[Rfam]
RNA sequence: GUCGCGUGCCCUCCUUGGGCGUUUCCUCCCUAGACUCGGGCCGUUCGUUCGCCGGACGGCCCGCUUUUUUUGUCCGC
Numbered sequence: 001g002u003c004g005c006g007u008g009c010c011c012u013c014c015u016u017g018g019g020c021g022u023u024u025c026c027u028c029c030c031u032a033g034a035c036u037c038g039g040g041c042c043g044u045u046c047g048u049u050c051g052c053c054g055g056a057c058g059g060c061c062c063g064c065u066u067u068u069u070u071u072g073u074c075c076g077c
Stems, first nucleotide, its partner, number of pairs: 008020004038062009

Shown here is a 77-nucleotide RNA sequence from Dichotomicrobium thermohalophilum, a member of the family "Makes More Granules Regulator RNA (mmgR)". On this family, see Schluter et al., BMC Genomics 2010: "A genome-wide survey of sRNAs in the symbiotic nitrogen-fixing alpha-proteobacterium Sinorhizobium meliloti". Taxonomically the source falls in Dichotomicrobium (Bacteria, Pseudomonadota, Hyphomicrobiales, Hyphomicrobiaceae). Pairs were carried over by alignment from the consensus structure.